[Rfam]
RNA sequence: UGUCUCCUCCAACACCUCCUAAGGUUUGGAUUUAACCCGCAACCGCAAGGUCGCGGGUUUUUUUUG
Dot-bracket structure: .......(((((.(((......))))))))...(((((((............))))))).......
Numbered sequence: 001u002g003u004c005u006c007c008u009c010c011a012a013c014a015c016c017u018c019c020u021a022a023g024g025u026u027u028g029g030a031u032u033u034a035a036c037c038c039g040c041a042a043c044c045g046c047a048a049g050g051u052c053g054c055g056g057g058u059u060u061u062u063u064u065u066g
Stems, first nucleotide, its partner, number of pairs: 008030005014025003034059007
Background:
A member of the RNA family "Betaproteobacteria toxic small RNA" from Cognatundibacterium oligocarboniphilum, 66 nucleotides long. From the family's description: Overexpression in amino aid rich medium attenuates growth, suggesting role in repressing amino acid intake and metabolism. The family's consensus secondary structure was predicted with WAR.